The record is a 102-nucleotide RNA from Ictidomys tridecemlineatus, which matches "Y RNA" in Rfam.
Rfam's curators write: Y RNAs are components of the Ro ribonucleoprotein particle (Ro RNP), in association with Ro60 and La proteins.
Rfam classes the family as a non-coding RNA gene.

[Rfam]
RNA sequence: AGCUGGCCCAAGUGCAGUGCUGUUUACAACUAAAUGAUCACAACCAGUUACAGAUUUCUUUGUUCCUUCUCCAUUUCCACAGAUUCACUUGGCUAGACUUAU
Numbered sequence: 001a002g003c004u005g006g007c008c009c010a011a012g013u014g015c016a017g018u019g020c021u022g023u024u025u026a027c028a029a030c031u032a033a034a035u036g037a038u039c040a041c042a043a044c045c046a047g048u049u050a051c052a053g054a055u056u057u058c059u060u061u062g063u064u065c066c067u068u069c070u071c072c073a074u075u076u077c078c079a080c081a082g083a084u085u086c087a088c089u090u091g092g093c094u095a096g097a098c099u100u101a102u
Stems, first nucleotide, its partner, number of pairs: 003096006010090002014086001017080003028064003032060002